The family of this 83-nucleotide RNA from Aminobacterium colombiense is "tRNA". A search with the family's covariance model found it, with a score of 62 bits. The source organism's lineage runs through Bacteria, Synergistia, Synergistales, Aminobacteriaceae and Aminobacterium colombiense.
RNA sequence: GGUGGGAUGGCCGAGUGGUCAAAGGCUGCAGACUGUAAAUCUGCUGGCGUUCGCCUACGUAGGUUCGAACCCUACUCCCACCA
Numbered sequence: 001g002g003u004g005g006g007a008u009g010g011c012c013g014a015g016u017g018g019u020c021a022a023a024g025g026c027u028g029c030a031g032a033c034u035g036u037a038a039a040u041c042u043g044c045u046g047g048c049g050u051u052c053g054c055c056u057a058c059g060u061a062g063g064u065u066c067g068a069a070c071c072c073u074a075c076u077c078c079c080a081c082c083a
Stems, first nucleotide, its partner, number of pairs: 001082007010026003028044005059075005